RNA: c-di-AMP riboswitch aptamer (ydaO/yuaA leader)
Organism: Oscillatoria sp. FACHB-1407
RNA sequence: UGAGGCAAUUAGCCUAAUCCAGCUUUGAUGCUGGAGCGGAGGAACCAGUUAUUGGGGCGUAUCUCUGGCACCAGAGAAGGAGAUUUCUCACUUCUAGCCCGCCAGCUAACUUCGUCGGCUUUGAGGAAAAACAUG
Dot-bracket structure: ..........((((...((((((......))))))((((((....((.....))(((.....((((......))))..((((........))))...))).........)))))).))))...............